[Rfam]
RNA sequence: UCUCCCGAGGAGCGUUGCAGCGUCCCGCUAUUUCAGCAGGCGUGAGGCUCGGGAGGCCGGGCCGAACGGUCUGUCAGUUCGACAGGCUCACAGAUCCGCUGUGCAACGACGCUCAUCCACC
Dot-bracket structure: .(((((((............((((..............))))......)))))))..................................................................
The family of this 121-nucleotide RNA sequence from Simplicispira hankyongi is "SAH (S-adenosyl-L-homocysteine) riboswitch aptamer". The literature on the family includes a 2008 paper in Mol Cell by Wang et al., "Riboswitches that sense S-adenosylhomocysteine and activate genes involved in coenzyme recycling". NCBI's taxonomy places the organism under Bacteria, Pseudomonadati, Burkholderiales, Comamonadaceae, Simplicispira.